A member of the RNA family "sul1 RNA" from Devosia pacifica, 53 nucleotides long. Pairs were carried over by alignment from the consensus structure, which is taken from published work. The match comes from Rfam's covariance-model search (54 bits). The family's RNA type in Rfam is riboswitch.

RNA sequence: AACGGACCCGAAUGAUCGGGUGGCUUCUCCGGGCGCCUAUCCCCCGGCAACAG
Dot-bracket structure: .....((((((....)))))).......(((((.........)))))......